A member of the RNA family "FMN riboswitch aptamer (RFN element)" from Sporanaerobacter acetigenes, 127 nucleotides long. The match comes from Rfam's covariance-model search (120 bits). The RFN element is a highly conserved domain that is found frequently in the 5'-untranslated regions of prokaryotic mRNAs that encode for flavin mononucleotide (FMN) biosynthesis and transport proteins. This element is a metabolite-dependent riboswitch that directly binds FMN in the absence of proteins. In Bacillus subtilis, the riboswitch most likely controls gene expression by causing premature transcription termination within the 5' untranslated region of the ribDEAHT operon and precluding access to the ribosome-binding site of ypaA mRNA.The FMN riboswitch structure, reported in present an FMN-bound six-stem junction, adopts a butterfly-like scaffold, stapled together by opposingly directed but nearly identically folded peripheral domains.
[Rfam]
RNA sequence: AAUAAUCUUCAGGGCGAGGUGCAAUUCCUCACCGGCGGUUAUAGCCCGCGAGCCAUAUAUCGUUUAUGUGGUUGAUUUGGUGAAAAUCCAAAGCCGACAGUUAAAGUCUGGAUGGAAGAAGAUAUUG
Numbered sequence: 001a002a003u004a005a006u007c008u009u010c011a012g013g014g015c016g017a018g019g020u021g022c023a024a025u026u027c028c029u030c031a032c033c034g035g036c037g038g039u040u041a042u043a044g045c046c047c048g049c050g051a052g053c054c055a056u057a058u059a060u061c062g063u064u065u066a067u068g069u070g071g072u073u074g075a076u077u078u079g080g081u082g083a084a085a086a087u088c089c090a091a092a093g094c095c096g097a098c099a100g101u102u103a104a105a106g107u108c109u110g111g112a113u114g115g116a117a118g119a120a121g122a123u124a125u126u127g
Stems, first nucleotide, its partner, number of pairs: 005123006017029003031107002033096002035049004044094002052072003076092005098110003